SAM (S-adenosyl methionine) riboswitch aptamer: a 114-nucleotide sequence from Rothia aerolata. Its family is annotated with regulation of gene expression and S-adenosylmethionine metabolic process in the Gene Ontology. A search with the family's covariance model found it, with a score of 105 bits.
RNA sequence: GGUCAUGAGAGCCAGUGAUAAGCCCCAGCUUACUGGCCGGCAACCCUCCACUCGCGGUGGGGUGCCCUGGGUGAAGACCGGGCACAGUUCAUCCGUUCUGUGCAAGCGCGGGGA
Numbered sequence: 001g002g003u004c005a006u007g008a009g010a011g012c013c014a015g016u017g018a019u020a021a022g023c024c025c026c027a028g029c030u031u032a033c034u035g036g037c038c039g040g041c042a043a044c045c046c047u048c049c050a051c052u053c054g055c056g057g058u059g060g061g062g063u064g065c066c067c068u069g070g071g072u073g074a075a076g077a078c079c080g081g082g083c084a085c086a087g088u089u090c091a092u093c094c095g096u097u098c099u100g101u102g103c104a105a106g107c108g109c110g111g112g113g114a
Stems, first nucleotide, its partner, number of pairs: 001079004009038001011037006021030002039066003044062003048057002082103006090095001